[Rfam]
Overview: Shown here is an 86-nucleotide sequence, a member of the family "c-di-GMP-II-GAG riboswitch aptamer". The literature on the family includes a 2017 paper in Proc Natl Acad Sci U S A by Weinberg et al., "Bioinformatic analysis of riboswitch structures uncovers variant classes with altered ligand specificity".
RNA sequence: GUGGCGGGUAGAGGCUAAGAACCGUGUCCCGCAAGGACGGGCACCGGGGACGCGGGGAGCCAGUGGUGCGACCGGCUACCACAGGU
Number, nucleotide and partner (000 for none) at each position: 001g086002u085003g000004g000005c000006g000007g080008g079009u078010a077011g076012a000013g061014g060015c059016u000017a000018a000019g000020a000021a000022c055023c054024g053025u052026g051027u050028c049029c048030c000031g000032c000033a000034a000035g000036g000037a000038c000039g073040g072041g069042c068043a067044c066045c065046g000047g000048g029049g028050a027051c026052g025053c024054g023055g022056g000057g000058a000059g015060c014061c013062a000063g000064u000065g045066g044067u043068g042069c041070g000071a000072c040073c039074g000075g000076c011077u010078a009079c008080c007081a000082c000083a000084g000085g002086u001
Clan: c-di-GMP_II riboswitch clan.